[Rfam]
The record is a 185-nucleotide RNA sequence from Acinetobacter baumannii, which matches "6S / SsrS RNA" in Rfam. The sequence is in the family's curated seed alignment. The family's RNA type in Rfam is non-coding RNA gene.
RNA sequence: CUGUCUCUGGGAUGUUCGCCAGCCGGUCUGAUUCCCCUGAGCCGAUAUCAUCUCUUUAGGAUGGUGUUCUGCAUAUUUAGAGCGUAUGCCUACCCCGAGUAGGAAACCCAGCAAGUAUGCGUCACCUCCACCUUGAACUUUAGGGUUCAAGGGUAACGACAUGCAGCGGCAUCUUCGGAGCAUUU
Dot-bracket structure: ....(((((((((((.(((..............(((.((((((...............(((.((((.(...(((((((.....((...(((((.....)))))..)).....))))))).).)))))))..............)))))).)))............))))))).))))))).....